This 333-nucleotide RNA sequence belongs to the Rfam family "permuted transfer-messenger RNA". Pairs were carried over by alignment from the consensus structure, which is taken from published work. On this family, see Williams and Bartel, RNA 1996: "Phylogenetic analysis of tmRNA secondary structure". Gene Ontology term of the family: RNA catabolic process. It scores 113 bits against the family's covariance model.

RNA sequence: CAAUUUGCUUGACGCAGACUGAAUACUAAUCUGGACAUGGGGGCAGUACCCAUCGCCUCCACCAUAAACACUUGGAGAAGUAUAUGUUUAAAUGGUUAUCAAAGACUAGACUUGUUGUGAUUACAAGAGACUAUUUCAGAGAAAGAAACCGUAAAGCAGAUGCUAAAAUUCCAAAGUAUCUAUCGGGAACACGAAGUGUUUAUGAUGGGGGCGAACUAGGUUCGACAGGUAGGAAUAGGAAAGUUUAGAAUUGUGGGUUGACUGCCUAAUAGGUCAAAAACUAUAAUUGCAAACGACAAUUAUGUUCCUGUGGAUUACGCUCUAGCAGCCUAA
Number, nucleotide and partner (000 for none) at each position: 001c253002a252003a251004u250005u249006u000007g000008c000009u000010u000011g000012a000013c000014g000015c000016a000017g000018a000019c000020u000021g000022a000023a000024u000025a000026c232027u231028a230029a000030u000031c228032u227033g226034g000035a000036c000037a053038u052039g051040g050041g049042g000043g000044c000045a000046g000047u000048a000049c041050c040051c039052a038053u037054c213055g212056c211057c210058u209059c208060c207061a000062c000063c000064a000065u000066a000067a000068a000069c000070a000071c000072u000073u000074g000075g000076a000077g000078a000079a000080g000081u000082a000083u000084a000085u000086g000087u000088u000089u000090a000091a000092a000093u000094g000095g000096u000097u000098a000099u000100c000101a000102a000103a000104g000105a000106c000107u000108a000109g000110a000111c000112u000113u000114g000115u000116u000117g000118u000119g000120a000121u000122u000123a000124c000125a000126a000127g000128a000129g000130a000131c000132u000133a000134u000135u000136u000137c000138a000139g000140a000141g000142a000143a000144a000145g000146a000147a000148a000149c000150c000151g000152u000153a000154a000155a000156g000157c000158a000159g000160a000161u000162g000163c000164u000165a000166a000167a000168a000169u000170u000171c000172c000173a000174a000175a000176g000177u000178a000179u000180c000181u000182a000183u000184c000185g000186g000187g000188a000189a000190c000191a000192c000193g000194a000195a000196g000197u000198g000199u000200u000201u000202a000203u000204g000205a000206u000207g060208g059209g058210g057211g056212c055213g054214a000215a000216c000217u000218a000219g000220g000221u000222u000223c000224g000225a000226c033227a032228g031229g000230u028231a027232g026233g000234a000235a000236u000237a000238g000239g000240a000241a000242a000243g000244u000245u000246u000247a000248g000249a005250a004251u003252u002253g001254u000255g000256g000257g000258u000259u000260g000261a000262c000263u000264g000265c000266c000267u000268a000269a000270u000271a000272g000273g000274u000275c000276a000277a000278a000279a000280a000281c000282u000283a000284u000285a000286a000287u000288u000289g000290c000291a000292a000293a000294c000295g000296a000297c000298a000299a000300u000301u000302a000303u000304g000305u000306u000307c000308c000309u000310g000311u000312g000313g000314a000315u000316u000317a000318c000319g000320c000321u000322c000323u000324a000325g000326c000327a000328g000329c000330c000331u000332a000333a000